[Rfam]
RNA sequence: AAAAUACAUUUCUCAAGGUCCACACCUGUGCUUGCACAAAGGUGAGCUGGACUUUGGAACACGCCCAAAUAUGAGCAUAAAAGGGAAGCGUCAGCUUUCCCAUAUGCGAAUAUUUGUAUGGAUUGCGGGAGUGCUCGGCACGGAGCAAUCCAUGUAAUUA
Numbered sequence: 001a002a003a004a005u006a007c008a009u010u011u012c013u014c015a016a017g018g019u020c021c022a023c024a025c026c027u028g029u030g031c032u033u034g035c036a037c038a039a040a041g042g043u044g045a046g047c048u049g050g051a052c053u054u055u056g057g058a059a060c061a062c063g064c065c066c067a068a069a070u071a072u073g074a075g076c077a078u079a080a081a082a083g084g085g086a087a088g089c090g091u092c093a094g095c096u097u098u099c100c101c102a103u104a105u106g107c108g109a110a111u112a113u114u115u116g117u118a119u120g121g122a123u124u125g126c127g128g129g130a131g132u133g134c135u136c137g138g139c140a141c142g143g144a145g146c147a148a149u150c151c152a153u154g155u156a157a158u159u160a
Stems, first nucleotide, its partner, number of pairs: 002159002005156003010061001013058001016054007023044004027038004066116007075107004083100007120151007131141004

Clostridiales-1 RNA: a 160-nucleotide sequence from Eubacterium sp. AF36-5BH. Pairs were carried over by alignment from the consensus structure, which is taken from published work. A search with the family's covariance model found it, with a score of 99 bits. The family has 194 seed sequences and 1,172 matches in Rfam 15.1. By type it is a small RNA. NCBI's taxonomy places the organism under Bacteria, Bacillati, Bacillota, Eubacteriales, Eubacterium.